[Rfam]
RNA sequence: UGCCCGUGAUGAUUUGCCAUGCUAAUACUGAUGCACCAGGCUGGUCCUCAAGGUCAUCUGUUCUGGGUGCAGUUGAGUUAAAAUCUACUUCUCGCAAAACUUGUGCGAUCUGAGGCAU
Dot-bracket structure: ((((....................................(.(((..........))).).....................................................)))).
Small nucleolar RNA U6-53/MBII-28: a 118-nucleotide RNA sequence from Polypterus senegalus. Lineage of the source: Eukaryota > Deuterostomia > Polypteriformes > Polypteridae > Polypterus. Its family is annotated with RNA processing and nucleolus in the Gene Ontology. By type it is a C/D-box small nucleolar RNA.